[Rfam]
RNA: Group II catalytic intron D1-D4-3
Organism: Acidaminococcus intestini
RNA sequence: AACAUCGUAAGGUGGAACCCGAAGGAAGGAGCAGGCAAAUCUCUGACCUGACGAACAGAAAUCGCAUGAGGCCAAUUUGGGAUGGAGAAGGCCACCAAACAGACUGAAUUCCUAUAACGCCCCGGAAUCCCAAAGGGUAGAUGCGGCAGGUGAAUGGAGAAAAAAGGAUAUGAUU
Number, nucleotide and partner (000 for none) at each position: 001a000002a000003c014004a013005u012006c011007g000008u000009a000010a000011g006012g005013u004014g003015g000016a000017a000018c000019c000020c000021g000022a000023a000024g000025g000026a000027a000028g000029g175030a174031g000032c172033a000034g000035g000036c167037a000038a000039a000040u160041c159042u158043c157044u156045g155046a151047c150048c149049u148050g147051a000052c000053g000054a000055a000056c000057a000058g000059a000060a000061a000062u146063c145064g144065c143066a142067u000068g000069a000070g000071g138072c137073c136074a000075a000076u134077u133078u132079g131080g130081g129082a128083u000084g112085g111086a110087g109088a000089a000090g105091g104092c000093c102094a000095c000096c000097a000098a000099a000100c000101a000102g093103a000104c091105u090106g000107a000108a000109u087110u086111c085112c084113u000114a000115u000116a000117a000118c000119g000120c000121c000122c000123c000124g000125g000126a000127a000128u082129c081130c080131c079132a078133a077134a076135g000136g073137g072138u071139a000140g000141a000142u066143g065144c064145g063146g062147c050148a049149g048150g047151u046152g000153a000154a000155u045156g044157g043158a042159g041160a040161a000162a000163a000164a000165a000166g000167g036168a000169u000170a000171u000172g032173a000174u030175u029